[Rfam]
RNA: mir-395 microRNA precursor family
Organism: Vitis vinifera
RNA sequence: GUGUCCCCUAGAGUUCCCUUGAACACUUCACUGGGGACCUUCUCUAGUUAUAAUGACUUCCUACUGAAGUGUUUGGGGGAACUCCUGGUGCCAU
Numbered sequence: 001g002u003g004u005c006c007c008c009u010a011g012a013g014u015u016c017c018c019u020u021g022a023a024c025a026c027u028u029c030a031c032u033g034g035g036g037a038c039c040u041u042c043u044c045u046a047g048u049u050a051u052a053a054u055g056a057c058u059u060c061c062u063a064c065u066g067a068a069g070u071g072u073u074u075g076g077g078g079g080a081a082c083u084c085c086u087g088g089u090g091c092c093a094u
Stems, first nucleotide, its partner, number of pairs: 005090001007088002011084010022074002024071007032063004